[Rfam]
RNA sequence: ACUACCCUCCACGCCAGCCAGUGAGAGGGCAAGCCACGGCCCAGCCGAAAAUCAAACCGAGCACCCGGCCGGUAGGCGAACCCAUCCAGCACCGUCGAACGCCGGCA
Numbered sequence: 001a002c003u004a005c006c007c008u009c010c011a012c013g014c015c016a017g018c019c020a021g022u023g024a025g026a027g028g029g030c031a032a033g034c035c036a037c038g039g040c041c042c043a044g045c046c047g048a049a050a051a052u053c054a055a056a057c058c059g060a061g062c063a064c065c066c067g068g069c070c071g072g073u074a075g076g077c078g079a080a081c082c083c084a085u086c087c088a089g090c091a092c093c094g095u096c097g098a099a100c101g102c103c104g105g106c107a
Stems, first nucleotide, its partner, number of pairs: 005029005010023003065105005075096003
Shown here is a 107-nucleotide sequence from Bifidobacterium longum, a member of the family "RT-19 RNA". The source organism's lineage runs through Bacteria, Bacillati, Actinomycetota, Actinomycetes and Bifidobacterium longum. The family's consensus secondary structure is taken from published work. Rfam classes the family as a small RNA.